[Rfam]
RNA sequence: UUGUGGACGGCAGCGCCAUUUUCAGAGCUGUCAGUGUGCACGUGGUCAUAGCUCUUUAAAUGGUACUGCUGUACGCAC
Numbered sequence: 001u002u003g004u005g006g007a008c009g010g011c012a013g014c015g016c017c018a019u020u021u022u023c024a025g026a027g028c029u030g031u032c033a034g035u036g037u038g039c040a041c042g043u044g045g046u047c048a049u050a051g052c053u054c055u056u057u058a059a060a061u062g063g064u065a066c067u068g069c070u071g072u073a074c075g076c077a078c
Stems, first nucleotide, its partner, number of pairs: 002077003007072003011068003015064007024055008
Rfam assigns this 78-nucleotide RNA from Cyclopterus lumpus to the family "mir-458 microRNA precursor family". On this family, see Chen et al., Genes Dev 2005: "The developmental miRNA profiles of zebrafish as determined by small RNA cloning". Gene Ontology terms of the family: miRNA-mediated post-transcriptional gene silencing and RISC complex. The family's consensus secondary structure was predicted with RNAalifold.